[Rfam]
Record summary:
The family of this 56-nucleotide RNA sequence is "salivarius-1 RNA".
RNA sequence: GCCUUGCAUCCACAUGAUUUGAGAUGGUCGUAUGUGUUGAGAGCAUAGCAAGGCUU
Numbered sequence: 001g002c003c004u005u006g007c008a009u010c011c012a013c014a015u016g017a018u019u020u021g022a023g024a025u026g027g028u029c030g031u032a033u034g035u036g037u038u039g040a041g042a043g044c045a046u047a048g049c050a051a052g053g054c055u056u
Base pairs, nucleotide, nucleotide: 001054002053003052004051005050006049007048010027011026012025013023022038029041031047032046033045034044035043
Rfam's curators put it in the seed alignment.